[Rfam]
RNA sequence: UCAAAGUGGAGCAGCUACCACUAUAAAAACGGGCGGCACCGAAAAGCCAAAAGAGUAGGAAAACA
Numbered sequence: 001u002c003a004a005a006g007u008g009g010a011g012c013a014g015c016u017a018c019c020a021c022u023a024u025a026a027a028a029a030c031g032g033g034c035g036g037c038a039c040c041g042a043a044a045a046g047c048c049a050a051a052a053g054a055g056u057a058g059g060a061a062a063a064c065a
Stems, first nucleotide, its partner, number of pairs: 006021004032048003039059002
Rfam assigns this 65-nucleotide RNA sequence from Flavisolibacter sp. to the family "DUF805 RNA".
The organism belongs to Flavisolibacter, within Bacteria.
It scores 72 bits against the family's covariance model.